A member of the RNA family "Purine riboswitch aptamer" from Ureibacillus sinduriensis, 102 nucleotides long. The base pairs follow the family's consensus structure, which is taken from published work. The source organism's lineage runs through Bacteria, Bacillota, Caryophanaceae, Ureibacillus and Ureibacillus sinduriensis.
[Rfam]
RNA sequence: AAAAUAUAAUUAGACUGCCUUCAUAUAAGUCCGAUAAUAGGGUUCGGAUGUUUCUACUAAGUUACCAUAAAUAACUUAUCUAUGAGGGCGGGUACAGCUAUG
Numbered sequence: 001a002a003a004a005u006a007u008a009a010u011u012a013g014a015c016u017g018c019c020u021u022c023a024u025a026u027a028a029g030u031c032c033g034a035u036a037a038u039a040g041g042g043u044u045c046g047g048a049u050g051u052u053u054c055u056a057c058u059a060a061g062u063u064a065c066c067a068u069a070a071a072u073a074a075c076u077u078a079u080c081u082a083u084g085a086g087g088g089c090g091g092g093u094a095c096a097g098c099u100a101u102g
Stems, first nucleotide, its partner, number of pairs: 018088008029049006058078007